[Rfam]
RNA sequence: AGGACCCAAAUCUCUUGGGUCAGGCGUGGGGACCCAAGUCUAAUGGGUCCUAUGUCAGGACCCAUUUCUCUUGAGUCCGAUGUCAGGACCCAAGGUUCUUGGGUCUU
Number, nucleotide and partner (000 for none) at each position: 001a107002g106003g105004a104005c103006c102007c101008a100009a099010a000011u000012c000013u095014c094015u093016u092017g091018g090019g089020u088021c087022a000023g000024g084025c000026g000027u000028g000029g000030g078031g077032a076033c075034c000035c073036a072037a071038g000039u000040c000041u000042a000043a065044u064045g063046g062047g061048u060049c059050c058051u000052a000053u000054g000055u000056c000057a000058g050059g049060a048061c047062c046063c045064a044065u043066u000067u000068c000069u000070c000071u037072u036073g035074a000075g033076u032077c031078c030079g000080a000081u000082g000083u000084c024085a000086g000087g021088a020089c019090c018091c017092a016093a015094g014095g013096u000097u000098c000099u009100u008101g007102g006103g005104u004105c003106u002107u001
RNA: MIR6450 microRNA precursor family
Organism: Populus trichocarpa